[Rfam]
RNA: Group II catalytic intron D1-D4-6
RNA sequence: GAAAUCCUGCCUGAGUAAGGUCUAGUUAACCAGUAGUAGCGAGUCUUGAGUUGCCAUCAGUAAUGGUGGGAACUAAGCGUAGACAGCGAGAAAGCAGGGUUGAAGAGCUAUUGAGCCUCGAAAUUUUAUAUAUCCAGAUGGUUGACGUAUUAAUUACUGCGGAAAACAACAUCGCAUAGGUCAUAAUGGCAAGAGCUAUGUGGCACUGCGGGGUCAAAGGGCC
Numbered sequence: 001g002a003a004a005u006c007c008u009g010c011c012u013g014a015g016u017a018a019g020g021u022c023u024a025g026u027u028a029a030c031c032a033g034u035a036g037u038a039g040c041g042a043g044u045c046u047u048g049a050g051u052u053g054c055c056a057u058c059a060g061u062a063a064u065g066g067u068g069g070g071a072a073c074u075a076a077g078c079g080u081a082g083a084c085a086g087c088g089a090g091a092a093a094g095c096a097g098g099g100u101u102g103a104a105g106a107g108c109u110a111u112u113g114a115g116c117c118u119c120g121a122a123a124u125u126u127u128a129u130a131u132a133u134c135c136a137g138a139u140g141g142u143u144g145a146c147g148u149a150u151u152a153a154u155u156a157c158u159g160c161g162g163a164a165a166a167c168a169a170c171a172u173c174g175c176a177u178a179g180g181u182c183a184u185a186a187u188g189g190c191a192a193g194a195g196c197u198a199u200g201u202g203g204c205a206c207u208g209c210g211g212g213g214u215c216a217a218a219g220g221g222c223c
Stems, first nucleotide, its partner, number of pairs: 012035001015034002019031003023192001025190002037089001039087002043084004047079002049074004054069006112217001113215001115214006135208003139205002141167003146161004172203008181194002